[Rfam]
RNA sequence: GGCGCGGCUCUUGCUAUCAGAUCCACACCGGUAACCAACGGCGGUUGCCCCACCUACGACAAAGACGUCGC
Dot-bracket structure: .............................(((((((......)))))))......................

Background
Rfam assigns this 71-nucleotide sequence from Pseudomonas protegens to the family "narK RNA". NCBI's taxonomy places the organism under Bacteria, Pseudomonadati, Pseudomonadaceae, Pseudomonas, Pseudomonas protegens.